[Rfam]
RNA sequence: AAUUAUUGUCAGACGGCAAAGAACUGUGAUAACUCUUUAAGCAUUAGCUCAGAAGGCAACAGAAAAAACUAUUUAUGAAAACUCUCGUCCAAGUACUCAGCCUCGUCGUGAUUAGUGUGGUGGUGAUUAUUAUCCCACCGUGCGGGGCAGCACUUGGACGAAGAAAGGCUUAAAAAUCAGGCCUGAAUCAAACGAGAACCCCCGCACCGAAAGGUCCGGGGGUUUUUUUUCGCAAUGAAAAAGUGAUGGGGAACAGCAAAUGGCUAACAGAAUAAAAUUCUGUUGUCCCAGUAAAAG
Number, nucleotide and partner (000 for none) at each position: 001a000002a000003u000004u000005a000006u032007u031008g030009u029010c028011a027012g000013a000014c000015g000016g000017c000018a000019a000020a000021g000022a000023a000024c000025u000026g000027u011028g010029a009030u008031a007032a006033c000034u000035c000036u000037u000038u000039a000040a070041g069042c000043a000044u065045u064046a000047g000048c000049u056050c000051a000052g000053a000054a000055g000056g049057c000058a000059a000060c000061a000062g000063a000064a045065a044066a000067a000068a000069c041070u040071a000072u000073u000074u000075a000076u000077g000078a000079a000080a000081a000082c000083u251084c250085u249086c000087g247088u246089c245090c000091a000092a000093g000094u000095a000096c000097u238098c237099a236100g233101c232102c000103u000104c000105g230106u000107c117108g116109u115110g000111a000112u000113u000114a000115g109116u108117g107118u000119g139120g138121u137122g136123g135124u000125g134126a133127u132128u000129a000130u000131u000132a127133u126134c125135c123136c122137a121138c120139c119140g159141u158142g000143c156144g155145g154146g153147g000148c000149a000150g000151c000152a000153c146154u145155u144156g143157g000158a141159c140160g189161a188162a000163g000164a000165a000166a000167g183168g182169c181170u180171u179172a000173a000174a000175a000176a000177u000178c000179a171180g170181g169182c168183c167184u000185g000186a000187a000188u161189c160190a000191a228192a000193c000194g227195a226196g225197a224198a223199c222200c221201c220202c219203c218204g217205c000206a215207c214208c213209g000210a000211a000212a000213g208214g207215u206216c000217c204218g203219g202220g201221g200222g199223u198224u197225u196226u195227u194228u191229u000230u105231c000232g101233c100234a000235a000236u099237g098238a097239a000240a000241a000242a000243g000244u000245g089246a088247u087248g000249g085250g084251g083252a284253a283254c282255a281256g280257c000258a278259a000260a273261u272262g000263g000264c000265u000266a000267a000268c000269a000270g000271a000272a261273u260274a000275a000276a000277a000278u258279u000280c256281u255282g254283u253284u252285g000286u000287c000288c000289c000290a000291g000292u000293a000294a000295a000296a000297g000
Soft rot Enterobacteriaceae Rev 39 5'UTR: a 297-nucleotide RNA sequence from Hafnia alvei. Its family is annotated with cellular response to starvation in the Gene Ontology. Rfam describes the family as follows. From bacteria cultured under starvation conditions. Lineage of the source: Bacteria > Pseudomonadota > Gammaproteobacteria > Enterobacterales > Hafnia alvei. A search with the family's covariance model found it, with a score of 157 bits. A reference for the family is Kwenda et al. (2016), "Discovery and profiling of small RNAs responsive to stress conditions in the plant pathogen Pectobacterium atrosepticum", BMC Genomics. The family's RNA type in Rfam is cis-regulatory element.